[Rfam]
RNA sequence: UGCAGACACAGAGCUUAGCUGAUUGGUGAACAGUGAUUGAUUCCUCCUUGUUCACAGUGGCUAAGUUCUGCACCUGAG
Numbered sequence: 001u002g003c004a005g006a007c008a009c010a011g012a013g014c015u016u017a018g019c020u021g022a023u024u025g026g027u028g029a030a031c032a033g034u035g036a037u038u039g040a041u042u043c044c045u046c047c048u049u050g051u052u053c054a055c056a057g058u059g060g061c062u063a064a065g066u067u068c069u070g071c072a073c074c075u076g077a078g
Stems, first nucleotide, its partner, number of pairs: 011068010026055007